[Rfam]
The family of this 62-nucleotide sequence from Macaca mulatta is "U7 small nuclear RNA". About the family: Animal histone pre-mRNAs are spliced by a different mechanism than nuclear pre-mRNAs and self-splicing introns. This processing involves the U7 snRNP, which contains only one RNA species: U7. The 5' end of U7 RNA is thought to base-pair to a conserved spacer element downstream of the cleavage site in histone pre-mRNA. This family contains a number of annotated U7 pseudogenes. Taxonomically the source falls in Macaca (Eukaryota, Craniata, Vertebrata, Sarcopterygii). The match comes from Rfam's covariance-model search (56 bits).
RNA sequence: CAGUGUUAUAGCUCUUUCAGAAUUUGUCUAAUAGACUUUCCAGUUUUUGCUGGAAAGCUCCC
Numbered sequence: 001c002a003g004u005g006u007u008a009u010a011g012c013u014c015u016u017u018c019a020g021a022a023u024u025u026g027u028c029u030a031a032u033a034g035a036c037u038u039u040c041c042a043g044u045u046u047u048u049g050c051u052g053g054a055a056a057g058c059u060c061c062c
Stems, first nucleotide, its partner, number of pairs: 034059001036057009